[Rfam]
RNA sequence: GGCACUUACAUGUGUUUUUGUCUUUUUGUGGACUAAAACUUAAAUGACAAGGUGCAAAAAAUAAAUCCUCUUUUGCAACCCAGAACUCAUUGUUUGGUAUGAGUUUUGAUACAUUAAAGAAGGAAUAUU
Numbered sequence: 001g002g003c004a005c006u007u008a009c010a011u012g013u014g015u016u017u018u019u020g021u022c023u024u025u026u027u028g029u030g031g032a033c034u035a036a037a038a039c040u041u042a043a044a045u046g047a048c049a050a051g052g053u054g055c056a057a058a059a060a061a062u063a064a065a066u067c068c069u070c071u072u073u074u075g076c077a078a079c080c081c082a083g084a085a086c087u088c089a090u091u092g093u094u095u096g097g098u099a100u101g102a103g104u105u106u107u108g109a110u111a112c113a114u115u116a117a118a119g120a121a122g123g124a125a126u127a128u129u
Base pairs, nucleotide, nucleotide: 002055003054004053005052006051007050009046011044014039015038016037017036018035020033021032026030065126066125068123069122071120072119073118074117081108082107083106084105085104086103087102088101089100090099
Dot-bracket structure: .((((((.(.(..(((((.((....(...).)).)))))....).)...)))))).........((.((.((((......((((((((((........))))))))))........)))).)).))...
Small nucleolar RNA SNORA40: a 129-nucleotide sequence from Octodon degus. Rfam links the family to the GO terms RNA processing and nucleolus. On this family, see Ofengand and Bakin, J Mol Biol 1997: "Mapping to nucleotide resolution of pseudouridine residues in large subunit ribosomal RNAs from representative eukaryotes, prokaryotes, archaebacteria, mitochondria and chloroplasts". Taxonomically the source falls in Octodon (Eukaryota, Eumetazoa, Teleostomi, Euarchontoglires). The snoRNA ACA 40 belongs to the H/ACA family of snoRNAs and guides the pseudouridylation of 28S rRNA subunit at position U4565. NB This family has a high threshold value to exclude a large number of closely related sequences that do not appear to have conserved H and ACA boxes, and may be pseudogenes. The base pairs follow the family's consensus structure, which was predicted with RNAalifold.